This 190-nucleotide RNA from Heyndrickxia shackletonii belongs to the Rfam family "6S / SsrS RNA".
RNA sequence: UGAGUCCUGAUGUGUACGUUGUGACACCUUAUCGUUUUGACCGAACAUAUCUACCUUCGGGAGUUCGGAGUUUCCAACUGGCAUACAUGCCUUUAUGGAAGGACGUAUAAAAGCUGGGGCAGAACACCCACCUGCGAAAGAGCGGGUUCAAGACAAAAGGAUUUUUGUUGACGGCAUGAUUGGGGCUCAU
Numbered sequence: 001u002g003a004g005u006c007c008u009g010a011u012g013u014g015u016a017c018g019u020u021g022u023g024a025c026a027c028c029u030u031a032u033c034g035u036u037u038u039g040a041c042c043g044a045a046c047a048u049a050u051c052u053a054c055c056u057u058c059g060g061g062a063g064u065u066c067g068g069a070g071u072u073u074c075c076a077a078c079u080g081g082c083a084u085a086c087a088u089g090c091c092u093u094u095a096u097g098g099a100a101g102g103a104c105g106u107a108u109a110a111a112a113g114c115u116g117g118g119g120c121a122g123a124a125c126a127c128c129c130a131c132c133u134g135c136g137a138a139a140g141a142g143c144g145g146g147u148u149c150a151a152g153a154c155a156a157a158a159g160g161a162u163u164u165u166u167g168u169u170g171a172c173g174g175c176a177u178g179a180u181u182g183g184g185g186c187u188c189a190u
Base pairs, nucleotide, nucleotide: 002188003187004186005185006184007183008182009181010180011179012177013176014175015174017173018172019171034154035153036152038150039149040148041146042145059129060128061127063125064124065123066122068120073118074117075116076115078113079112085106086105090102091101092100093099
Pairs were carried over by alignment from the consensus structure, which is taken from published work. The organism belongs to Heyndrickxia, within Bacteria. The family's RNA type in Rfam is non-coding RNA gene. It scores 98 bits against the family's covariance model.